[Rfam]
Archaeal large subunit ribosomal RNA: a 578-nucleotide part of an RNA from candidate division MSBL1 archaeon SCGC-AAA382A13.
On this family, see Cannone et al., BMC Bioinformatics 2002: "The comparative RNA web (CRW) site: an online database of comparative sequence and structure information for ribosomal, intron, and other RNAs".
The organism belongs to candidate division MSBL1, within Archaea.
Its family is annotated with ribosome and structural constituent of ribosome in the Gene Ontology.
The base pairs follow the family's consensus structure, which is taken from published work.
RNA sequence: CUCCCGUAGGGAAGCGAAGACCCCGUGGAGCUUAACUGCAGGCUGCUGUUGGAAUUUGGUCGUCGGUGUAAAGUGUAGGCGGGAGCCAUCGAAGCUGAGUCGCCAGGCUCAGCGGAGGCACUCAUGUAACACCGCUCACCCUCGACCGGGUUCCUAACUACGAAAGUAGAACAGCAGCAGUUGGGCAGUUUCGCUGGGGCGGCAGCCCCUCGAAAAAUUAUCGAGGGGGUCCAAAGGUCGGCUUAGGCGGGUCAGAAAUCCGCCGGAAAGGACAAGGCCAGAAGCCGGCCUAACUGUGUCUUCACCACAGGAAGACGCAGGGGCGAAAGCCUGGCCUAGCGAACCCCGAGGUCCCUCUUGUUGGGGGCUCGGGAUGACAGAAAAGCUACCCCGGGGAUAACAGAGUUGUCUCCCCCAAGAGCCCGUAUCGACGGGGAGGCUUGCGACCUCGAUGUCGGUUCUUCGCAUCCUGGCCGUGCAGCAGCGGCCAAGGGUAGGGUUGUUCGCCCGUUAAAGCGGAUCGUGAGCUGGGUUUAGACCGUCGUGAGACAGGUCGGACGCUAUCUUGCGGGAGUGUU
Numbered sequence: 001c002u003c004c005c006g007u008a009g010g011g012a013a014g015c016g017a018a019g020a021c022c023c024c025g026u027g028g029a030g031c032u033u034a035a036c037u038g039c040a041g042g043c044u045g046c047u048g049u050u051g052g053a054a055u056u057u058g059g060u061c062g063u064c065g066g067u068g069u070a071a072a073g074u075g076u077a078g079g080c081g082g083g084a085g086c087c088a089u090c091g092a093a094g095c096u097g098a099g100u101c102g103c104c105a106g107g108c109u110c111a112g113c114g115g116a117g118g119c120a121c122u123c124a125u126g127u128a129a130c131a132c133c134g135c136u137c138a139c140c141c142u143c144g145a146c147c148g149g150g151u152u153c154c155u156a157a158c159u160a161c162g163a164a165a166g167u168a169g170a171a172c173a174g175c176a177g178c179a180g181u182u183g184g185g186c187a188g189u190u191u192c193g194c195u196g197g198g199g200c201g202g203c204a205g206c207c208c209c210u211c212g213a214a215a216a217a218u219u220a221u222c223g224a225g226g227g228g229g230u231c232c233a234a235a236g237g238u239c240g241g242c243u244u245a246g247g248c249g250g251g252u253c254a255g256a257a258a259u260c261c262g263c264c265g266g267a268a269a270g271g272a273c274a275a276g277g278c279c280a281g282a283a284g285c286c287g288g289c290c291u292a293a294c295u296g297u298g299u300c301u302u303c304a305c306c307a308c309a310g311g312a313a314g315a316c317g318c319a320g321g322g323g324c325g326a327a328a329g330c331c332u333g334g335c336c337u338a339g340c341g342a343a344c345c346c347c348g349a350g351g352u353c354c355c356u357c358u359u360g361u362u363g364g365g366g367g368c369u370c371g372g373g374a375u376g377a378c379a380g381a382a383a384a385g386c387u388a389c390c391c392c393g394g395g396g397a398u399a400a401c402a403g404a405g406u407u408g409u410c411u412c413c414c415c416c417a418a419g420a421g422c423c424c425g426u427a428u429c430g431a432c433g434g435g436g437a438g439g440c441u442u443g444c445g446a447c448c449u450c451g452a453u454g455u456c457g458g459u460u461c462u463u464c465g466c467a468u469c470c471u472g473g474c475c476g477u478g479c480a481g482c483a484g485c486g487g488c489c490a491a492g493g494g495u496a497g498g499g500u501u502g503u504u505c506g507c508c509c510g511u512u513a514a515a516g517c518g519g520a521u522c523g524u525g526a527g528c529u530g531g532g533u534u535u536a537g538a539c540c541g542u543c544g545u546g547a548g549a550c551a552g553g554u555c556g557g558a559c560g561c562u563a564u565c566u567u568g569c570g571g572g573a574g575u576g577u578u
Stems, first nucleotide, its partner, number of pairs: 001574008010566003014561002022395004027391002029387005035189004042181007051154012065140004078136005085119003097110005158169004192205001193203003206228006231334002237289006243269002246264006270279002294320009322331001324329001345373005351368001353367004405444002408442001409439007419429002456531001457529004461523001462520005469494002473488005497509004537555004541550003